[Rfam]
RNA sequence: UAAGACGAUCCAUGGCAAGUAACAUUUAAACCCCAUCAUGACUGGCAAAAUAACCUUGAAAUUUUUGAGGGAUGACCUCAUUUAAUCUCCAGUAGCAAUUUUGACCAGUGAAUGGGAGGAGUUAUGCGUCUGGAUCGUCUUAC
Numbered sequence: 001u002a003a004g005a006c007g008a009u010c011c012a013u014g015g016c017a018a019g020u021a022a023c024a025u026u027u028a029a030a031c032c033c034c035a036u037c038a039u040g041a042c043u044g045g046c047a048a049a050a051u052a053a054c055c056u057u058g059a060a061a062u063u064u065u066u067g068a069g070g071g072a073u074g075a076c077c078u079c080a081u082u083u084a085a086u087c088u089c090c091a092g093u094a095g096c097a098a099u100u101u102u103g104a105c106c107a108g109u110g111a112a113u114g115g116g117a118g119g120a121g122u123u124a125u126g127c128g129u130c131u132g133g134a135u136c137g138u139c140u141u142a143c
Base pairs, nucleotide, nucleotide: 002141003140004139005138006137007136008135009134010133011132012131014130015129016128019125021123022122023121026045027044028043033040054070055069056068057067058066059065071082072081073080074079086119087118088117089116090115092113093112
The family of this 143-nucleotide RNA sequence from Brenneria rubrifaciens is "Yersinia sRNA 155(RyfD)".
On this family, see Righetti et al., Proc Natl Acad Sci U S A 2016: "Temperature-responsive in vitro RNA structurome of Yersinia pseudotuberculosis".
Pairs were carried over by alignment from the consensus structure.
It scores 100 bits against the family's covariance model.